[Rfam]
RNA sequence: CACCGAGUCCGAGGUUCCGGGGCCCACCGGGACCUGGUGCACAAGGGA
Numbered sequence: 001c002a003c004c005g006a007g008u009c010c011g012a013g014g015u016u017c018c019g020g021g022g023c024c025c026a027c028c029g030g031g032a033c034c035u036g037g038u039g040c041a042c043a044a045g046g047g048a
Stems, first nucleotide, its partner, number of pairs: 013034008
RNA: raiA-hairpin RNA
Organism: Streptomyces sp. B93